The record is a 78-nucleotide sequence, which matches "skipping-rope RNA" in Rfam.
RNA sequence: UAGCAUUUGAGGAUAGAAAUGCGGCAGCUAUCACCCUCUAUGUUAGGAGAUACGGGAAAAGUCGACCCGUCUAUGCUA
Numbered sequence: 001u002a003g004c005a006u007u008u009g010a011g012g013a014u015a016g017a018a019a020u021g022c023g024g025c026a027g028c029u030a031u032c033a034c035c036c037u038c039u040a041u042g043u044u045a046g047g048a049g050a051u052a053c054g055g056g057a058a059a060a061g062u063c064g065a066c067c068c069g070u071c072u073a074u075g076c077u078a
Stems, first nucleotide, its partner, number of pairs: 001078006009071001012032005022064004034047001052070005

It is annotated as a small RNA.